[Rfam]
RNA sequence: CCAAAGGCUCUUUUAAGAGCCACCGACAUACUCUCUAAAAGGGCUU
Numbered sequence: 001c002c003a004a005a006g007g008c009u010c011u012u013u014u015a016a017g018a019g020c021c022a023c024c025g026a027c028a029u030a031c032u033c034u035c036u037a038a039a040a041g042g043g044c045u046u
Base pairs, nucleotide, nucleotide: 006021007020008019009018010017011016
The record is a 46-nucleotide RNA sequence from Calyptomena viridis, which matches "Histone 3' UTR stem-loop" in Rfam. It scores 40 bits against the family's covariance model. NCBI's taxonomy places the organism under Eukaryota, Vertebrata, Teleostomi, Eurylaimidae, Calyptomena. The family's consensus secondary structure is taken from published work. By type it is a cis-regulatory element. Rfam's curators write: The mRNAs of metazoan histone genes lack a poly-A tail. 3' end processing occurs at a site between a highly conserved stem-loop (modelled by this family) and a purine rich region around 20 nts downstream (the histone downstream element, or HDE). The stem-loop is bound by a 31 kDa stem-loop binding protein (SLBP - also termed the histone hairpin binding protein, or HBP). Together with U7 snRNA binding of the HDE, SLBP binding nucleate s the formation of the processing complex.